[Rfam]
RNA sequence: AAGAUCAAUACUGGAGAGCACGAUGAGUCGUCGCCGAAGGAGCAAGCCGUCAAGGUGAAUCUCUCAGGUAAAAGAACAGUAUUGUGACG
Numbered sequence: 001a002a003g004a005u006c007a008a009u010a011c012u013g014g015a016g017a018g019c020a021c022g023a024u025g026a027g028u029c030g031u032c033g034c035c036g037a038a039g040g041a042g043c044a045a046g047c048c049g050u051c052a053a054g055g056u057g058a059a060u061c062u063c064u065c066a067g068g069u070a071a072a073a074g075a076a077c078a079g080u081a082u083u084g085u086g087a088c089g
Stems, first nucleotide, its partner, number of pairs: 006084008020031004033069003036065002040063003046056002
About this RNA: The record is an 89-nucleotide RNA sequence from Lacicoccus alkaliphilus, which matches "Glycine riboswitch aptamer" in Rfam. For this family Rfam cites "In Vivo Behavior of the Tandem Glycine Riboswitch in Bacillus subtilis" (Babina et al., MBio, 2017). Pairs were carried over by alignment from the consensus structure. The organism belongs to Lacicoccus alkaliphilus, within Bacteria.